[Rfam]
RNA sequence: AUGGCAUCUUACUAAUAGUAUUUGAUAAAGAAUUUUCUAAUACUGUUAGGUAAAGAUGCCAGC
Numbered sequence: 001a002u003g004g005c006a007u008c009u010u011a012c013u014a015a016u017a018g019u020a021u022u023u024g025a026u027a028a029a030g031a032a033u034u035u036u037c038u039a040a041u042a043c044u045g046u047u048a049g050g051u052a053a054a055g056a057u058g059c060c061a062g063c
Stems, first nucleotide, its partner, number of pairs: 002061007009053005015046008024037002
RNA: mir-8/mir-141/mir-200 microRNA precursor family
Organism: Schistosoma japonicum